[Rfam]
RNA sequence: CAUGCACCGGUGGGGUCCCUCGGCCUGGCCUGUAAUCCAGGACCCCUUGGGGAUGUCGGAGAGCCAGUUUCGGCCCAAUCCUGCAGGCCAGGACGAGGGACCCCACUGGUGCAUG
Numbered sequence: 001c002a003u004g005c006a007c008c009g010g011u012g013g014g015g016u017c018c019c020u021c022g023g024c025c026u027g028g029c030c031u032g033u034a035a036u037c038c039a040g041g042a043c044c045c046c047u048u049g050g051g052g053a054u055g056u057c058g059g060a061g062a063g064c065c066a067g068u069u070u071c072g073g074c075c076c077a078a079u080c081c082u083g084c085a086g087g088c089c090a091g092g093a094c095g096a097g098g099g100a101c102c103c104c105a106c107u108g109g110u111g112c113a114u115g
Stems, first nucleotide, its partner, number of pairs: 003113002006110001008108003012104011024092002027089008
Shown here is a 115-nucleotide sequence from Myotis lucifugus, a member of the family "mir-9193 microRNA precursor family". A search with the family's covariance model found it, with a score of 55 bits. The base pairs follow the family's consensus structure, which was predicted with RNAalifold. Rfam links the family to the GO terms miRNA-mediated post-transcriptional gene silencing and RISC complex. Rfam 15.1 lists 6,008 matches to the family in 8 species.